[Rfam]
RNA sequence: GCGUGGGUCGGCCCACUGAACUGGACCAGUGGGCUGGGGGACACCGCCGUUCACGCUCCCCGCGGGCGGCGGUUCGGCCCGGGGGACGCCUUCGUUCCCCGGGCCGAC
Numbered sequence: 001g002c003g004u005g006g007g008u009c010g011g012c013c014c015a016c017u018g019a020a021c022u023g024g025a026c027c028a029g030u031g032g033g034c035u036g037g038g039g040g041a042c043a044c045c046g047c048c049g050u051u052c053a054c055g056c057u058c059c060c061c062g063c064g065g066g067c068g069g070c071g072g073u074u075c076g077g078c079c080c081g082g083g084g085g086a087c088g089c090c091u092u093c094g095u096u097c098c099c100c101g102g103g104c105c106g107a108c
Base pairs, nucleotide, nucleotide: 002106006075007074009036010035011034012033013032014031015030016029017028018027037042044072045071046070047069048068049067050066051065052064054062076105077104078103079102080101081100082099083098084097085096086095087094088093